[Rfam]
RNA: Mammalian CPEB3 ribozyme
RNA sequence: GUCGCAUUUUCGAGGCCACAGCAGAAGCGCUCACGGUGUGGCCUUGUCAGCUUCCAACAAAUCUGUGAAUUCUGCU
Numbered sequence: 001g002u003c004g005c006a007u008u009u010u011c012g013a014g015g016c017c018a019c020a021g022c023a024g025a026a027g028c029g030c031u032c033a034c035g036g037u038g039u040g041g042c043c044u045u046g047u048c049a050g051c052u053u054c055c056a057a058c059a060a061a062u063c064u065g066u067g068a069a070u071u072c073u074g075c076u
Stems, first nucleotide, its partner, number of pairs: 014043004020076007027039003048065003052061002